[Rfam]
RNA sequence: GGCACCACCUUCCUACUCGGAUCGUCCGGCACGUUCCUGCCGGUAGAAGGGGUUCACU
Numbered sequence: 001g002g003c004a005c006c007a008c009c010u011u012c013c014u015a016c017u018c019g020g021a022u023c024g025u026c027c028g029g030c031a032c033g034u035u036c037c038u039g040c041c042g043g044u045a046g047a048a049g050g051g052g053u054u055c056a057c058u
Stems, first nucleotide, its partner, number of pairs: 009050003013046003026043006